Rfam assigns this 117-nucleotide RNA from Vigna radiata to the family "MIR390 microRNA precursor family". On this family, see Gustafson et al., Nucleic Acids Res 2005: "ASRP: the Arabidopsis Small RNA Project Database". The match comes from Rfam's covariance-model search (98 bits). The base pairs follow the family's consensus structure, which was predicted with WAR.
RNA sequence: UGGAAGAAUCUGUAAAGCUCAGGAGGGAUAGCGCCAUGGAUGGUCAUUCCUCAUCUCUCUUCUCUUUCCUUUGAUCUUCUCUUGCGCUAUCCAUCCUGAGUUUCAUGGCUUCUCUCC
Numbered sequence: 001u002g003g004a005a006g007a008a009u010c011u012g013u014a015a016a017g018c019u020c021a022g023g024a025g026g027g028a029u030a031g032c033g034c035c036a037u038g039g040a041u042g043g044u045c046a047u048u049c050c051u052c053a054u055c056u057c058u059c060u061u062c063u064c065u066u067u068c069c070u071u072u073g074a075u076c077u078u079c080u081c082u083u084g085c086g087c088u089a090u091c092c093a094u095c096c097u098g099a100g101u102u103u104c105a106u107g108g109c110u111u112c113u114c115u116c117c
Base pairs, nucleotide, nucleotide: 010108016102017101018100019099020098021097022096023095024094026092027091028090029089030088031087032086033085034084